[Rfam]
RNA: Small nucleolar RNA Z247
Organism: Triticum aestivum
Nucleotides: 139
Base pairs, nucleotide, nucleotide: 005137006136007135008134089108091106092105093104094103
Number, partner (000 for none) and nucleotide at each position: 001000c002000c003000g004000c005137u006136c007135g008134g009000a010000g011000a012000c013000g014000c015000c016000g017000a018000g019000a020000u021000c022000a023000u024000c025000u026000c027000c028000c029000a030000c031000g032000u033000c034000a035000u036000c037000g038000c039000c040000g041000g042000c043000c044000u045000u046000g047000a048000c049000a050000u051000c052000g053000a054000c055000u056000a057000c058000a059000a060000u061000c062000c063000a064000g065000u066000g067000a068000u069000c070000u071000c072000g073000g074000c075000c076000u077000u078000g079000g080000c081000g082000g083000c084000g085000c086000g087000g088000a089108u090000c091106g092105a093104a094103c095000c096000u097000g098000u099000u100000a101000c102000g103094g104093u105092u106091c107000a108089g109000g110000a111000g112000c113000u114000g115000u116000a117000u118000a119000g120000c121000c122000a123000g124000c125000u126000c127000c128000u129000g130000a131000g132000u133000u134008u135007u136006g137005a138000c139000g